[Rfam]
RNA: SmY spliceosomal RNA
RNA sequence: CGUUUUCAUAUAAACGAUGCAGGGCCUUACUGAAGACCCCUAGCACAAUUUUUGAAACCCUGUCUGUUUCGGAUGGGGUA
Number, nucleotide and partner (000 for none) at each position: 001c000002g000003u000004u000005u000006u000007c000008a000009u000010a000011u000012a000013a000014a000015c000016g000017a000018u000019g000020c000021a000022g039023g038024g037025c000026c035027u034028u033029a000030c000031u000032g000033a028034a027035g026036a000037c024038c023039c022040c000041u000042a000043g000044c000045a000046c000047a000048a000049u000050u000051u000052u000053u000054g000055a000056a000057a079058c078059c077060c076061u075062g074063u073064c072065u071066g000067u000068u000069u000070c000071g065072g064073a063074u062075g061076g060077g059078g058079u057080a000